Rfam assigns this 219-nucleotide sequence from Nitrospira sp. to the family "Group II catalytic intron D1-D4-6".
[Rfam]
RNA sequence: GCAUUCCUGCCCGGCAACGGAAGGGCAUCCAGCCGGAAGCGAGUUUUGCGUGGUGAUGGGGCAACCCAUCCUGCGAAGCGUAAACAGCGAGUGUACAGGCCGUGCGAUUGAGCCCCGAAAGGACCCAACUACGUGGGAGCCGAGCUCGUCAAGAUCAGCGAAGGCUGCAUCGAGGCACCGCGAUGCCAGGUGUCUUGGUCCCACCGGGGUCAUAGAACA
Numbered sequence: 001g002c003a004u005u006c007c008u009g010c011c012c013g014g015c016a017a018c019g020g021a022a023g024g025g026c027a028u029c030c031a032g033c034c035g036g037a038a039g040c041g042a043g044u045u046u047u048g049c050g051u052g053g054u055g056a057u058g059g060g061g062c063a064a065c066c067c068a069u070c071c072u073g074c075g076a077a078g079c080g081u082a083a084a085c086a087g088c089g090a091g092u093g094u095a096c097a098g099g100c101c102g103u104g105c106g107a108u109u110g111a112g113c114c115c116c117g118a119a120a121g122g123a124c125c126c127a128a129c130u131a132c133g134u135g136g137g138a139g140c141c142g143a144g145c146u147c148g149u150c151a152a153g154a155u156c157a158g159c160g161a162a163g164g165c166u167g168c169a170u171c172g173a174g175g176c177a178c179c180g181c182g183a184u185g186c187c188a189g190g191u192g193u194c195u196u197g198g199u200c201c202c203a204c205c206g207g208g209g210u211c212a213u214a215g216a217a218c219a
Base pairs, nucleotide, nucleotide: 012035013034014033015032019030020029021028024187025186026185039088040087043085044084045083046082047080048079049075050074051073052072053071055070056069057068058067059066060065110211112210113209114208115207116206117205133204134203135202136201137200138199139165140164141163144159145158146157170198171197172196173195174194175193176192177191178190179189